[Rfam]
RNA sequence: GGUCACGAGUGACAGCGCGAAGGCCCCGGCUCGCUGUCCGGCAACCCUCCGUCCGUGGCGGGGUGCCCCGGGUGAUGACCAGGCCGUAAGCAGCGAGGCUUAUGGCAAGCGCGGACC
Numbered sequence: 001g002g003u004c005a006c007g008a009g010u011g012a013c014a015g016c017g018c019g020a021a022g023g024c025c026c027c028g029g030c031u032c033g034c035u036g037u038c039c040g041g042c043a044a045c046c047c048u049c050c051g052u053c054c055g056u057g058g059c060g061g062g063g064u065g066c067c068c069c070g071g072g073u074g075a076u077g078a079c080c081a082g083g084c085c086g087u088a089a090g091c092a093g094c095g096a097g098g099c100u101u102a103u104g105g106c107a108a109g110c111g112c113g114g115a116c117c
Stems, first nucleotide, its partner, number of pairs: 001080004009039001011038006021031002040067003045063003049058002083106009

Description:
Shown here is a 117-nucleotide RNA sequence from Streptantibioticus cattleyicolor, a member of the family "SAM (S-adenosyl methionine) riboswitch aptamer". Rfam's curators write: SAM-IV is a mRNA element that regulates gene expression via direct sensing of S-adenosylmethionine (SAM or AdoMet). Its family is annotated with S-adenosylmethionine metabolic process and regulation of gene expression in the Gene Ontology. The family's consensus secondary structure is taken from published work.